[Rfam]
Nucleotides: 088
Base pairs, nucleotide, nucleotide: 004085005084009081011079012078013077017073018072020070021069022068023067026065027064028063029062030061031060032059034058035057036056037055038054039053
Number, partner (000 for none) and nucleotide at each position: 001000u002000g003000g004085u005084c006000c007000a008000c009081a010000g011079c012078g013077g014000c015000u016000u017073g018072g019000a020070a021069g022068a023067c024000u025000a026065g027064u028063g029062a030061u031060u032059u033000u034058g035057u036056u037055g038054u039053u040000u041000u042000g043000u044000g045000g046000u047000u048000a049000a050000a051000c052000u053039g054038a055037c056036a057035a058034c059032a060031a061030g062029u063028c064027a065026u066000u067023g068022u069021c070020u071000c072018c073017c074000u075000c076000a077013c078012u079011g080000c081009u082000c083000u084005g085004a086000g087000a088000c